[Rfam]
caulobacter sRNA CC2171: a 162-nucleotide RNA from Phenylobacterium glaciei. The match comes from Rfam's covariance-model search (92 bits). For this family Rfam cites "Small non-coding RNAs in Caulobacter crescentus" (Landt et al., Mol Microbiol, 2008). Lineage of the source: Bacteria > Pseudomonadati > Pseudomonadota > Alphaproteobacteria > Phenylobacterium.
RNA sequence: CAACAACUGAAAGGAGGUGACCCAGUGUCUCAUUGUCUUCAUCCGCAGGUGGAAACCGUGCUCUGGGCCUCCGCUUACGAGGCUUGCGCGUAAGCGCUUCAGGUUGCGGGGCCGCUGAGCGGUCCGACAAUGGAACGGCCGGCCCCGACAACGGGUCGGCCG
Numbered sequence: 001c002a003a004c005a006a007c008u009g010a011a012a013g014g015a016g017g018u019g020a021c022c023c024a025g026u027g028u029c030u031c032a033u034u035g036u037c038u039u040c041a042u043c044c045g046c047a048g049g050u051g052g053a054a055a056c057c058g059u060g061c062u063c064u065g066g067g068c069c070u071c072c073g074c075u076u077a078c079g080a081g082g083c084u085u086g087c088g089c090g091u092a093a094g095c096g097c098u099u100c101a102g103g104u105u106g107c108g109g110g111g112c113c114g115c116u117g118a119g120c121g122g123u124c125c126g127a128c129a130a131u132g133g134a135a136c137g138g139c140c141g142g143c144c145c146c147g148a149c150a151a152c153g154g155g156u157c158g159g160c161c162g
Stems, first nucleotide, its partner, number of pairs: 016023002031132007044060002048056001050054001061067002068103003073097002078090002081087001112122004136162010147152001